[Rfam]
Nucleotides: 079
Base pairs, nucleotide, nucleotide: 012068013067015065016064017063018062019061020060021059024056026054027053028052029051030050031049
Number, partner (000 for none) and nucleotide at each position: 001000u002000g003000u004000c005000g006000c007000g008000g009000c010000c011000u012068c013067c014000u015065c016064a017063u018062u019061g020060u021059g022000c023000a024056u025000g026054c027053u028052g029051u030050g031049u032000g033000u034000a035000u036000u037000u038000c039000u040000g041000u042000g043000u044000g045000u046000a047000c048000c049031g050030c051029a052028c053027a054026g055000c056024g057000c058000c059021u060020g061019c062018a063017a064016u065015g066000u067013g068012g069000a070000g071000g072000u073000c074000g075000a076000g077000a078000u079000g

Rfam assigns this 79-nucleotide RNA from Echeneis naucrates to the family "mir-460 microRNA precursor family". A search with the family's covariance model found it, with a score of 59 bits. The base pairs follow the family's consensus structure, which was predicted with RNAalifold. Its family is annotated with miRNA-mediated post-transcriptional gene silencing and RISC complex in the Gene Ontology. On this family, see Xu et al., FEBS Lett 2006: "Identification of microRNAs from different tissues of chicken embryo and adult chicken".